[Rfam]
RNA sequence: UGGCACCCAAUGCGGGGCCCGGAUACGAGGGAUACCGUGAGGAAGAAGGCGCAAAGGAGGCCGGCGAGUAAAAGUGAGAGAAAAUUCCUUCGGCCACCGCAGGAGCCUGCUGCGCUGAGGCUGAAGGUGAGUAAAAGAGCCUGAAAAUGGGACAAGAAUUAAGCCACCAUCAGAUUUAUGUGAGACAAUUGAAAGAGGCUUUAAAGGCACGAGGAGUAAAGGUGAAUAGUGAGGAUUUAUUCAAAUUUUUUGGCUUUAUAAAAGAUAUGUGUCGUU
Numbered sequence: 001u002g003g004c005a006c007c008c009a010a011u012g013c014g015g016g017g018c019c020c021g022g023a024u025a026c027g028a029g030g031g032a033u034a035c036c037g038u039g040a041g042g043a044a045g046a047a048g049g050c051g052c053a054a055a056g057g058a059g060g061c062c063g064g065c066g067a068g069u070a071a072a073a074g075u076g077a078g079a080g081a082a083a084a085u086u087c088c089u090u091c092g093g094c095c096a097c098c099g100c101a102g103g104a105g106c107c108u109g110c111u112g113c114g115c116u117g118a119g120g121c122u123g124a125a126g127g128u129g130a131g132u133a134a135a136a137g138a139g140c141c142u143g144a145a146a147a148u149g150g151g152a153c154a155a156g157a158a159u160u161a162a163g164c165c166a167c168c169a170u171c172a173g174a175u176u177u178a179u180g181u182g183a184g185a186c187a188a189u190u191g192a193a194a195g196a197g198g199c200u201u202u203a204a205a206g207g208c209a210c211g212a213g214g215a216g217u218a219a220a221g222g223u224g225a226a227u228a229g230u231g232a233g234g235a236u237u238u239a240u241u242c243a244a245a246u247u248u249u250u251u252g253g254c255u256u257u258a259u260a261a262a263a264g265a266u267a268u269g270u271g272u273c274g275u276u
Stems, first nucleotide, its partner, number of pairs: 006031003012026001014024001035049002038046001085131003088127002093122001094120002098114005137153001140151004160203003163199003210252008220238004261276002264273003